[Rfam]
RNA: epsC RNA
RNA sequence: UGGUGAUAUCUCCUUACCGUUAUCAAUGGAGGUACUCGGCUAUGCUGUGGGUGUUCGUGCCUUAGAUGUUCAUUCUUCAAUGGUGUGGUGUGAGGAGAGGUUAGAUGCCUU
Numbered sequence: 001u002g003g004u005g006a007u008a009u010c011u012c013c014u015u016a017c018c019g020u021u022a023u024c025a026a027u028g029g030a031g032g033u034a035c036u037c038g039g040c041u042a043u044g045c046u047g048u049g050g051g052u053g054u055u056c057g058u059g060c061c062u063u064a065g066a067u068g069u070u071c072a073u074u075c076u077u078c079a080a081u082g083g084u085g086u087g088g089u090g091u092g093a094g095g096a097g098a099g100g101u102u103a104g105a106u107g108c109c110u111u
Stems, first nucleotide, its partner, number of pairs: 001019004007034007035094004039089008049062005065078002068075001097111005